[Rfam]
RNA sequence: CAGCAUCUGGGGGCUGCAACCUAGGGGCGGUAGCGUG
Number, nucleotide and partner (000 for none) at each position: 001c000002a000003g000004c000005a000006u000007c024008u023009g022010g021011g020012g000013g000014c000015u000016g000017c000018a000019a000020c011021c010022u009023a008024g007025g000026g000027g000028c000029g000030g000031u000032a000033g000034c000035g000036u000037g000
The record is a 37-nucleotide RNA from Pseudoalteromonas xiamenensis, which matches "JUMPstart RNA" in Rfam. The base pairs follow the family's consensus structure, which is taken from published work. It scores 41 bits against the family's covariance model.